[Rfam]
RNA sequence: CGUGUCGGCUGAAUCAGAGAUUGGCUGGCACACCUUGUAAAUAUUAACUCUUAGGAGAAAAUUAUGUCUCUGAAUGCAGAAACUAAAGCAGCAAUCGUUGCUGAUUACGCACGUGCUGAA
Numbered sequence: 001c002g003u004g005u006c007g008g009c010u011g012a013a014u015c016a017g018a019g020a021u022u023g024g025c026u027g028g029c030a031c032a033c034c035u036u037g038u039a040a041a042u043a044u045u046a047a048c049u050c051u052u053a054g055g056a057g058a059a060a061a062u063u064a065u066g067u068c069u070c071u072g073a074a075u076g077c078a079g080a081a082a083c084u085a086a087a088g089c090a091g092c093a094a095u096c097g098u099u100g101c102u103g104a105u106u107a108c109g110c111a112c113g114u115g116c117u118g119a120a
Stems, first nucleotide, its partner, number of pairs: 007026006051074002054071004
Dot-bracket structure: ......((((((........))))))........................((.((((..........)))).))..............................................
RNA: Ribosomal S15 leader
Organism: Vibrio eleionomae